RNA: Glycine riboswitch aptamer
Organism: Rivibacter subsaxonicus
RNA sequence: UGGCGACCGUCAGGAGAGAGCCCGCACACCCCGGUGAACAGGGCCGCCGAAGGCGCAGGGACCCGUUCCCGAACGCUCAGGCAAAAGGACUGGCACACGCAG
Numbered sequence: 001u002g003g004c005g006a007c008c009g010u011c012a013g014g015a016g017a018g019a020g021c022c023c024g025c026a027c028a029c030c031c032c033g034g035u036g037a038a039c040a041g042g043g044c045c046g047c048c049g050a051a052g053g054c055g056c057a058g059g060g061a062c063c064c065g066u067u068c069c070c071g072a073a074c075g076c077u078c079a080g081g082c083a084a085a086a087g088g089a090c091u092g093g094c095a096c097a098c099g100c101a102g
Stems, first nucleotide, its partner, number of pairs: 009094005020044004046082003049078002053076003059069002